[Rfam]
RNA sequence: UUUGCUACUGUAAACAUCCUUGACUGGAAGCUGGAAGGUGCCGAAGGAGCUUUCAGUCGGAUGUUUACAGCGGCAGG
Numbered sequence: 001u002u003u004g005c006u007a008c009u010g011u012a013a014a015c016a017u018c019c020u021u022g023a024c025u026g027g028a029a030g031c032u033g034g035a036a037g038g039u040g041c042c043g044a045a046g047g048a049g050c051u052u053u054c055a056g057u058c059g060g061a062u063g064u065u066u067a068c069a070g071c072g073g074c075a076g077g
Stems, first nucleotide, its partner, number of pairs: 002076005008070012023057010
The record is a 77-nucleotide RNA sequence from Ornithorhynchus anatinus, which matches "mir-30 microRNA precursor family" in Rfam. The organism belongs to Ornithorhynchus, within Eukaryota. Rfam describes the family as follows. This family consists of the mammalian microRNA (miRNA) precursor mir-30a. Animal miRNAs are transcribed as ~70nt precursors and subsequently processed by the Dicer enzyme to give a ~22nt product. In this case the mature sequence comes from both the 3' (miR-30) and 5' (mir-97-6) arms of the precursor. The extents of the hairpin precursors are not generally known and are estimated based on hairpin prediction. The products are thought to have regulatory roles through complementarity to mRNA. The involvement of Dicer in miRNA processing suggests a relationship with the phenomenon of RNA interference. miRNAs are numbered based on the sequence of the mature RNA. Rfam links the family to the GO terms RISC complex and gene silencing by miRNA.